[Rfam]
RNA: L19-Flavobacteria ribosomal protein leader
RNA sequence: GAACCUCUGACGAUCAUCGUGAAUGUCC
Numbered sequence: 001g002a003a004c005c006u007c008u009g010a011c012g013a014u015c016a017u018c019g020u021g022a023a024u025g026u027c028c
Stems, first nucleotide, its partner, number of pairs: 001028001003026002008023001010020004